Rfam assigns this 165-nucleotide RNA from Thermosporothrix hazakensis to the family "glmS glucosamine-6-phosphate activated ribozyme aptamer". The family's consensus secondary structure is taken from published work.
RNA sequence: GUAGAGAGAGUAGCGCAUGGGCCGGGCUCUGGAGGAAGCCCGGUUGACGAGGUGGAGGCUGUUCGGACCAUCAGCGGGGAGCCUCCAGGGGCGAUCACGUCCCUGUGAAGUGGGCGCACAAACCCGGUUGGUAACGAUCGGAACAAAACGCUCACAGUGAUGUAG
Numbered sequence: 001g002u003a004g005a006g007a008g009a010g011u012a013g014c015g016c017a018u019g020g021g022c023c024g025g026g027c028u029c030u031g032g033a034g035g036a037a038g039c040c041c042g043g044u045u046g047a048c049g050a051g052g053u054g055g056a057g058g059c060u061g062u063u064c065g066g067a068c069c070a071u072c073a074g075c076g077g078g079g080a081g082c083c084u085c086c087a088g089g090g091g092c093g094a095u096c097a098c099g100u101c102c103c104u105g106u107g108a109a110g111u112g113g114g115c116g117c118a119c120a121a122a123c124c125c126g127g128u129u130g131g132u133a134a135c136g137a138u139c140g141g142a143a144c145a146a147a148a149c150g151c152u153c154a155c156a157g158u159g160a161u162g163u164a165g
Stems, first nucleotide, its partner, number of pairs: 020045009054086005063074001065072002087104006110155007124141007